[Rfam]
A member of the RNA family "Small nucleolar RNA SNORD121A" from Rhynochetos jubatus, 80 nucleotides long.
RNA sequence: GUCAAAAAUAGCGUGAUGUCUUUUCCAAGCACAUAUCUGAUUGUUCUGUGUAGAAAAUGACUUGCUGAGUGAUUUUGGAU
Numbered sequence: 001g002u003c004a005a006a007a008a009u010a011g012c013g014u015g016a017u018g019u020c021u022u023u024u025c026c027a028a029g030c031a032c033a034u035a036u037c038u039g040a041u042u043g044u045u046c047u048g049u050g051u052a053g054a055a056a057a058u059g060a061c062u063u064g065c066u067g068a069g070u071g072a073u074u075u076u077g078g079a080u
Stems, first nucleotide, its partner, number of pairs: 001080003005076002008073002010070001
Dot-bracket structure: (((.((.(((...........................................................).)).)).)))
The family's consensus secondary structure was predicted with WAR. It is annotated as a C/D-box small nucleolar RNA. The literature on the family includes a 2006 paper in Nucleic Acids Res by Yang et al., "snoSeeker: an advanced computational package for screening of guide and orphan snoRNA genes in the human genome".